[Rfam]
RNA: Small nucleolar RNA SNORD30
RNA sequence: GUAUAUGAUGACUUUCAUAGAAUCUCUUUUGGCUGACGAUGGCUGUUGAGACUUGGAUAAAAAAAUAAA
Numbered sequence: 001g002u003a004u005a006u007g008a009u010g011a012c013u014u015u016c017a018u019a020g021a022a023u024c025u026c027u028u029u030u031g032g033c034u035g036a037c038g039a040u041g042g043c044u045g046u047u048g049a050g051a052c053u054u055g056g057a058u059a060a061a062a063a064a065a066u067a068a069a
Stems, first nucleotide, its partner, number of pairs: 023051004030045004